[Rfam]
Nucleotides: 104
Stems, first nucleotide, its partner, number of pairs: 001104004014095001016093002023041005044082007061075004
Number, partner (000 for none) and nucleotide at each position: 001104g002103g003102g004101a005000a006000a007000u008000g009000a010000u011000g012000a013000g014095u015000g016093g017092g018000u019000u020000a021000a022000u023041c024040u025039c026038g027037c028000u029000a030000u031000u032000u033000u034000a035000a036000u037027g038026c039025g040024a041023g042000u043000u044082g045081g046080g047079u048078g049077u050076c051000c052000a053000c054000c055000c056000a057000a058000g059000c060000c061075u062074g063073g064072u065000u066000a067000c068000g069000a070000c071000a072064a073063u074062u075061g076050g077049g078048c079047a080046u081045u082044c083000u084000c085000c086000u087000a088000u089000u090000u091000u092017c093016c094000a095014a096000u097000c098000u099000g100000a101004u102003c103002c104001c